[Rfam]
Rfam assigns this 84-nucleotide RNA sequence from Butyrivibrio sp. CAG:318 to the family "c-di-GMP-I riboswitch aptamer". A search with the family's covariance model found it, with a score of 67 bits. Rfam's curators write: GEMM was predicted in a large-scale screen for bacterial structured RNA regulatory elements. Genes associated with GEMM are involved in a diverse array of functions, including chemotaxis regulation, signal transduction, secretion and chitin.
RNA sequence: AUAAUAUUUAGGCAAACUUAUCGAAAGAUAAGGACGCAAAGCCAAGGGCCUCUACCUAAUAUGGUGUGGCAGCCGGUUGCUAUC
Numbered sequence: 001a002u003a004a005u006a007u008u009u010a011g012g013c014a015a016a017c018u019u020a021u022c023g024a025a026a027g028a029u030a031a032g033g034a035c036g037c038a039a040a041g042c043c044a045a046g047g048g049c050c051u052c053u054a055c056c057u058a059a060u061a062u063g064g065u066g067u068g069g070c071a072g073c074c075g076g077u078u079g080c081u082a083u084c
Stems, first nucleotide, its partner, number of pairs: 012037002017032006040078004046074002048070003055064002